Shown here is a 109-nucleotide RNA sequence from Gracilibacillus halotolerans, a member of the family "TPP riboswitch aptamer (THI element)". From the family's description: Vitamin B(1) in its active form thiamin pyrophosphate (TPP) is an essential coenzyme that is synthesised by coupling of pyrimidine and thiazole moieties in bacteria. Taxonomically the source falls in Gracilibacillus (Bacteria, Bacillota, Bacilli, Bacillaceae). A search with the family's covariance model found it, with a score of 78 bits.
[Rfam]
RNA sequence: ACUUUCCGCUAGGGGUGCUGUGAAAACAGCUGAGAUAAGAAUCGUAUUCUUUAUCCCUUCGAACCUGAACUUGGUUAAUACCAGCGUAGGGAAGUGGAGAGGUCGAAAA
Numbered sequence: 001a002c003u004u005u006c007c008g009c010u011a012g013g014g015g016u017g018c019u020g021u022g023a024a025a026a027c028a029g030c031u032g033a034g035a036u037a038a039g040a041a042u043c044g045u046a047u048u049c050u051u052u053a054u055c056c057c058u059u060c061g062a063a064c065c066u067g068a069a070c071u072u073g074g075u076u077a078a079u080a081c082c083a084g085c086g087u088a089g090g091g092a093a094g095u096g097g098a099g100a101g102g103u104c105g106a107a108a109a
Stems, first nucleotide, its partner, number of pairs: 006097005011058004017030005037051005064090004070084001072083003
Dot-bracket structure: .....(((((((((..(((((....)))))......(((((.....)))))...)))).....((((..(.(((......))))..))))..)))))............